[Rfam]
RNA: SAM riboswitch aptamer (S box leader)
Organism: Deinococcus hopiensis
RNA sequence: UCCUUAUCCAGAGCGCCCGAGAGACCUGGCUCGCAGACGGCGCGGCAACCGGACCUCAUCACGUCACGGUGCCAAGGCCAGCCCACCGCCCCCAUCAACGAUGAUGG
Numbered sequence: 001u002c003c004u005u006a007u008c009c010a011g012a013g014c015g016c017c018c019g020a021g022a023g024a025c026c027u028g029g030c031u032c033g034c035a036g037a038c039g040g041c042g043c044g045g046c047a048a049c050c051g052g053a054c055c056u057c058a059u060c061a062c063g064u065c066a067c068g069g070u071g072c073c074a075a076g077g078c079c080a081g082c083c084c085a086c087c088g089c090c091c092c093c094a095u096c097a098a099c100g101a102u103g104a105u106g107g
Base pairs, nucleotide, nucleotide: 001107002106004104005103006102007101008100013043014042015041016040017039021032022031023030026081027080028079029078044073045072046071047070049069050068051065052064077099